[Rfam]
RNA: mir-9/mir-79 microRNA precursor family
RNA sequence: UUUGUCUUUUCUUUGGUGAUGUAGCUGUAUGAUUGCUGUACAAGGUCAUAAAGCUAGAUUACCAAAGCAAAUACAUU
Numbered sequence: 001u002u003u004g005u006c007u008u009u010u011c012u013u014u015g016g017u018g019a020u021g022u023a024g025c026u027g028u029a030u031g032a033u034u035g036c037u038g039u040a041c042a043a044g045g046u047c048a049u050a051a052a053g054c055u056a057g058a059u060u061a062c063c064a065a066a067g068c069a070a071a072u073a074c075a076u077u
Stems, first nucleotide, its partner, number of pairs: 003075003007071003011067010022056005028050006